[Rfam]
RNA sequence: ACAGGCACUUGGCACCCUUGUGAUAUCAUACAGAGAAGUCAUAGGGCAGUACCUGAGGGUCUGU
Number, nucleotide and partner (000 for none) at each position: 001a064002c063003a062004g061005g060006c059007a000008c057009u056010u000011g000012g053013c000014a000015c000016c046017c045018u044019u043020g042021u041022g040023a039024u038025a000026u030027c000028a000029u000030a026031c000032a000033g000034a000035g000036a000037a000038g024039u023040c022041a021042u020043a019044g018045g017046g016047c000048a000049g000050u000051a000052c000053c012054u000055g000056a009057g008058g000059g006060u005061c004062u003063g002064u001
About this RNA: This 64-nucleotide RNA sequence from Myotis lucifugus belongs to the Rfam family "MAT2A 3'UTR stem loop B". It is one of the family's seed sequences. By type it is a cis-regulatory element.